[Rfam]
RNA sequence: AUACGUCCUCGUUAGGCGAGGCGUCUAUGUGAACAUAAGCCACUGCCCGGAAACGUCGAAAGACGCCAAUGGGUAGAACAGGUAUGGCCGGCUUAAGGCUUUACUCAACGUGGCUGAGUGGACAACUCUACGUCGCAUAGUGCUAAAGCUCAACUAGGGGGAUUUAU
Numbered sequence: 001a002u003a004c005g006u007c008c009u010c011g012u013u014a015g016g017c018g019a020g021g022c023g024u025c026u027a028u029g030u031g032a033a034c035a036u037a038a039g040c041c042a043c044u045g046c047c048c049g050g051a052a053a054c055g056u057c058g059a060a061a062g063a064c065g066c067c068a069a070u071g072g073g074u075a076g077a078a079c080a081g082g083u084a085u086g087g088c089c090g091g092c093u094u095a096a097g098g099c100u101u102u103a104c105u106c107a108a109c110g111u112g113g114c115u116g117a118g119u120g121g122a123c124a125a126c127u128c129u130a131c132g133u134c135g136c137a138u139a140g141u142g143c144u145a146a147a148g149c150u151c152a153a154c155u156a157g158g159g160g161g162a163u164u165u166a167u
Stems, first nucleotide, its partner, number of pairs: 005163006011154002013096001015150003020144003025140008039114005045074005054065004081105004087099003116128003

The record is a 167-nucleotide RNA from Alicyclobacillus hesperidum, which matches "M-box riboswitch aptamer (ykoK leader)" in Rfam. Lineage of the source: Bacteria > Bacillati > Bacillota > Bacilli > Alicyclobacillus. Rfam describes the family as follows. M-box riboswitch, also know as ykoK leader is described as a metaloregulatory RNA that sense divalent metals and function as a genetic control element of genes related to divalent metal transport in bacteria. It was first reported upstream of the B.subtilis ykoK gene and genes with related functions in other bacteria. The pairing is the family consensus, mapped onto this sequence.